[Rfam]
RNA sequence: AUGACUUGAACUUAUGAGUAGUAAAAUAACGAUCCAGGGUGAUGCAGUACUCCUCACUGGCAAUGUAAGACGAAUUUUUGAACAGGUAAAGGUUGCUCUGAAGGUAACCCGCCUACUUUGUGGGAUGCCUGGGAGUCGUGAUCUGCCCG
Numbered sequence: 001a002u003g004a005c006u007u008g009a010a011c012u013u014a015u016g017a018g019u020a021g022u023a024a025a026a027u028a029a030c031g032a033u034c035c036a037g038g039g040u041g042a043u044g045c046a047g048u049a050c051u052c053c054u055c056a057c058u059g060g061c062a063a064u065g066u067a068a069g070a071c072g073a074a075u076u077u078u079u080g081a082a083c084a085g086g087u088a089a090a091g092g093u094u095g096c097u098c099u100g101a102a103g104g105u106a107a108c109c110c111g112c113c114u115a116c117u118u119u120g121u122g123g124g125a126u127g128c129c130u131g132g133g134a135g136u137c138g139u140g141a142u143c144u145g146c147c148c149g
Stems, first nucleotide, its partner, number of pairs: 004022003031052002038045001053069002056066002083149001085147003090144007099133001102130005108124005
The record is a 149-nucleotide sequence from Carlito syrichta, which matches "U12 minor spliceosomal RNA" in Rfam. A search with the family's covariance model found it, with a score of 92 bits. NCBI's taxonomy places the organism under Eukaryota, Deuterostomia, Theria, Euarchontoglires, Carlito. By type it is a spliceosomal small nuclear RNA. The pairing is the family consensus, mapped onto this sequence.